[Rfam]
RNA sequence: GUGCCCUUUUAAGGCUGACAAAUUGCCUGAAGAGGCUAACACAGAAGCGUAAAGUAAGUCUCCAUAAAACCCAGGGAAGAGAUUGUAGAACUCCUCUUUGGAUCCUGUCUGGAGUCACAGCU
Numbered sequence: 001g002u003g004c005c006c007u008u009u010u011a012a013g014g015c016u017g018a019c020a021a022a023u024u025g026c027c028u029g030a031a032g033a034g035g036c037u038a039a040c041a042c043a044g045a046a047g048c049g050u051a052a053a054g055u056a057a058g059u060c061u062c063c064a065u066a067a068a069a070c071c072c073a074g075g076g077a078a079g080a081g082a083u084u085g086u087a088g089a090a091c092u093c094c095u096c097u098u099u100g101g102a103u104c105c106u107g108u109c110u111g112g113a114g115u116c117a118c119a120g121c122u
Stems, first nucleotide, its partner, number of pairs: 002051003006047005014040001016038002019035001058116001060114005071101007079093003083090002
Record summary: The record is a 122-nucleotide RNA from Mustela putorius, which matches "Small nucleolar RNA SNORA26" in Rfam. Its Rfam clan is "SNORA27 clan". The snoRNA HBI-6 belong to the H/ACA family of snoRNAs, guiding the pseudouridylation of position U4522 if the 28S rRNA. HBI-6 is the human orthologue of mouse MBI-6 snoRNA. For this family Rfam cites "RNomics: an experimental approach that identifies 201 candidates for novel, small, non-messenger RNAs in mouse" (Huttenhofer et al., EMBO J, 2001). The organism belongs to Mustela putorius, within Eukaryota. Rfam classes the family as an H/ACA-box small nucleolar RNA. Gene Ontology terms of the family: RNA processing and nucleolus.